[Rfam]
RNA sequence: GUAAUGUUUCUUGCUCAAAUGAGUAUUCCAACGACAGCAGUGCCAUUCCUCUCUCUCUCUCCUAGGUAUGGUGCUGAUGUUUGUGAGAUGCUCAUUUGGGCACGCAAUGUUAC
Numbered sequence: 001g002u003a004a005u006g007u008u009u010c011u012u013g014c015u016c017a018a019a020u021g022a023g024u025a026u027u028c029c030a031a032c033g034a035c036a037g038c039a040g041u042g043c044c045a046u047u048c049c050u051c052u053c054u055c056u057c058u059c060u061c062c063u064a065g066g067u068a069u070g071g072u073g074c075u076g077a078u079g080u081u082u083g084u085g086a087g088a089u090g091c092u093c094a095u096u097u098g099g100g101c102a103c104g105c106a107a108u109g110u111u112a113c
Stems, first nucleotide, its partner, number of pairs: 004110005010104001012102016029085002
RNA: MIR828 microRNA precursor family
Organism: Actinidia chinensis